The record is a 142-nucleotide sequence from Pantherophis guttatus, which matches "Small nucleolar RNA SNORA13" in Rfam. The family's RNA type in Rfam is H/ACA-box small nucleolar RNA. A search with the family's covariance model found it, with a score of 71 bits.
RNA sequence: UGCCUUUUAGUGUUGCCCAUUCGUUUUGGUUGCUAAUGAAUGCGGUGUCAGAAAAGGCAUAAAGCAAGUUUCCCCGAUUGCAGCCUUUUUCUUUGCAACACUAGGGAUGAUUCCCUUGGAGUUUGCUGUGUGUGGAACAAAA
Numbered sequence: 001u002g003c004c005u006u007u008u009a010g011u012g013u014u015g016c017c018c019a020u021u022c023g024u025u026u027u028g029g030u031u032g033c034u035a036a037u038g039a040a041u042g043c044g045g046u047g048u049c050a051g052a053a054a055a056g057g058c059a060u061a062a063a064g065c066a067a068g069u070u071u072c073c074c075c076g077a078u079u080g081c082a083g084c085c086u087u088u089u090u091c092u093u094u095g096c097a098a099c100a101c102u103a104g105g106g107a108u109g110a111u112u113c114c115c116u117u118g119g120a121g122u123u124u125g126c127u128g129u130g131u132g133u134g135g136a137a138c139a140a141a142a
Stems, first nucleotide, its partner, number of pairs: 002058006011050002014047004018042008072134001074132001075130001080129005089121004095114001099109002